[Rfam]
RNA: Group II catalytic intron D1-D4-7
Organism: Alloprevotella sp. Lung230
RNA sequence: CCUAUUGUUUCGUCAAUAGUAGCCUAAGAGCAGGUGUAAUAUCUGUUGUGCUAAGCUGCUCUGAAAAGGUAACCCUCCCGAAAGGGGAAGGAUGAACCGUGAGAGGAUUUCAACGACAGCAAGCGUUAUGCGGUCUGGGGG
Numbered sequence: 001c002c003u004a005u006u007g008u009u010u011c012g013u014c015a016a017u018a019g020u021a022g023c024c025u026a027a028g029a030g031c032a033g034g035u036g037u038a039a040u041a042u043c044u045g046u047u048g049u050g051c052u053a054a055g056c057u058g059c060u061c062u063g064a065a066a067a068g069g070u071a072a073c074c075c076u077c078c079c080g081a082a083a084g085g086g087g088a089a090g091g092a093u094g095a096a097c098c099g100u101g102a103g104a105g106g107a108u109u110u111c112a113a114c115g116a117c118a119g120c121a122a123g124c125g126u127u128a129u130g131c132g133g134u135c136u137g138g139g140g141g
Stems, first nucleotide, its partner, number of pairs: 002019006028061005033052008076087004090111003098103001116134002119131003